[Rfam]
RNA sequence: UCAGCAUCACUGCUUGGUGCUAACAUCAAGGUGUCUGUUCUUAUCAGUUUAAUACUCGGCCUUCUGGCUGGGAAAGCAUUAUCUAAAGUUGUAUCUGAUAGGUCCUUUAUUUGAGAACUGUAUAUUAAAUUGAUUUUUGAAACAAGGGGAUGGAAUAGGAGCUGGUUCUGUCCACCUCCUGCAUUAACCUGGUAUUGCAGUAUCUCUAGGACCAGUGCCUUUCCU
Numbered sequence: 001u002c003a004g005c006a007u008c009a010c011u012g013c014u015u016g017g018u019g020c021u022a023a024c025a026u027c028a029a030g031g032u033g034u035c036u037g038u039u040c041u042u043a044u045c046a047g048u049u050u051a052a053u054a055c056u057c058g059g060c061c062u063u064c065u066g067g068c069u070g071g072g073a074a075a076g077c078a079u080u081a082u083c084u085a086a087a088g089u090u091g092u093a094u095c096u097g098a099u100a101g102g103u104c105c106u107u108u109a110u111u112u113g114a115g116a117a118c119u120g121u122a123u124a125u126u127a128a129a130u131u132g133a134u135u136u137u138u139g140a141a142a143c144a145a146g147g148g149g150a151u152g153g154a155a156u157a158g159g160a161g162c163u164g165g166u167u168c169u170g171u172c173c174a175c176c177u178c179c180u181g182c183a184u185u186a187a188c189c190u191g192g193u194a195u196u197g198c199a200g201u202a203u204c205u206c207u208a209g210g211a212c213c214a215g216u217g218c219c220u221u222u223c224c225u
Stems, first nucleotide, its partner, number of pairs: 007025001012020002042100006102118002105115003146178004152172002158169004181218005188210005